[Rfam]
The family of this 82-nucleotide RNA sequence from Psychrobacter sp. KH172YL61 is "Proteo-phage-1 RNA".
It is annotated as a small RNA.
RNA sequence: ACCCUGCCGUUAGGGCUGCUAUGCAGAGAAGACGGACAGCGUCAGACCAGCGGUGCGCUGCAUAUAAAAAACACUGGCAGUC
Numbered sequence: 001a002c003c004c005u006g007c008c009g010u011u012a013g014g015g016c017u018g019c020u021a022u023g024c025a026g027a028g029a030a031g032a033c034g035g036a037c038a039g040c041g042u043c044a045g046a047c048c049a050g051c052g053g054u055g056c057g058c059u060g061c062a063u064a065u066a067a068a069a070a071a072c073a074c075u076g077g078c079a080g081u082c
Base pairs, nucleotide, nucleotide: 002014003013007035008034009033010032011031016026017025018024037060038059039058040057041056047077048076049075050074

A search with the family's covariance model found it, with a score of 43 bits.